[Rfam]
RNA sequence: GCCUGGAUAGCGCAGUAGGCAGCGCGUCAGUCUCAUAACCAUCGGGAAAUGGGGAGUAAUCUGAAGGCCGUGAGUUCGAGCCUCACUCCGGGCA
Dot-bracket structure: (((((((..((((........)))).((((..............................)))).....(((((.......)))))))))))).
RNA: tRNA